This 236-nucleotide sequence from Linnemannia gamsii belongs to the Rfam family "Group II catalytic intron D1-D4-6". The organism belongs to Linnemannia, within Eukaryota. From the family's description: Group II introns are found in rRNA, tRNA and mRNA of organelles in fungi, plants and protists, and also in mRNA in bacteria. Pairs were carried over by alignment from the consensus structure.
[Rfam]
RNA sequence: AAAUGGCAGCCGUGGCAAAGCUUAGCCAGCAGCCGCGUACCGAGUCUUGCGUGGUGUCCGGUAACGGCCACUGCGAAGCGUAGACAGGGAGGUUGUAGGCCGGAACAUCAGUGAACGGGAAGAUAGCCCCGAAAUCGAACAUGGUCGAAGUAGCCGACUCUAUCUCUCUAAGGGGAAGGCAGAAUUCCGGUACACGUCAUGGCGAGUGUACUGGGGUGCUUCCGGGGUUGUUACCG
Numbered sequence: 001a002a003a004u005g006g007c008a009g010c011c012g013u014g015g016c017a018a019a020g021c022u023u024a025g026c027c028a029g030c031a032g033c034c035g036c037g038u039a040c041c042g043a044g045u046c047u048u049g050c051g052u053g054g055u056g057u058c059c060g061g062u063a064a065c066g067g068c069c070a071c072u073g074c075g076a077a078g079c080g081u082a083g084a085c086a087g088g089g090a091g092g093u094u095g096u097a098g099g100c101c102g103g104a105a106c107a108u109c110a111g112u113g114a115a116c117g118g119g120a121a122g123a124u125a126g127c128c129c130c131g132a133a134a135u136c137g138a139a140c141a142u143g144g145u146c147g148a149a150g151u152a153g154c155c156g157a158c159u160c161u162a163u164c165u166c167u168c169u170a171a172g173g174g175g176a177a178g179g180c181a182g183a184a185u186u187c188c189g190g191u192a193c194a195c196g197u198c199a200u201g202g203c204g205a206g207u208g209u210a211c212u213g214g215g216g217u218g219c220u221u222c223c224g225g226g227g228u229u230g231u232u233a234c235c236g
Stems, first nucleotide, its partner, number of pairs: 012036005020030003023205001025203002038090001040088002044085004048080002050075007058067003123231001126228006147222006153180003158174004185216011